[Rfam]
RNA sequence: GCAUCGUGGGAUUCUGUCUGUGACUUGUGUUGUUUUAAGUCACAUCACAGGCAGAGUUCUAGCGAUGC
Numbered sequence: 001g002c003a004u005c006g007u008g009g010g011a012u013u014c015u016g017u018c019u020g021u022g023a024c025u026u027g028u029g030u031u032g033u034u035u036u037a038a039g040u041c042a043c044a045u046c047a048c049a050g051g052c053a054g055a056g057u058u059c060u061a062g063c064g065a066u067g068c
Stems, first nucleotide, its partner, number of pairs: 004065003007061008018050006027043003
RNA: mir-11 microRNA precursor family
Organism: Ceutorhynchus assimilis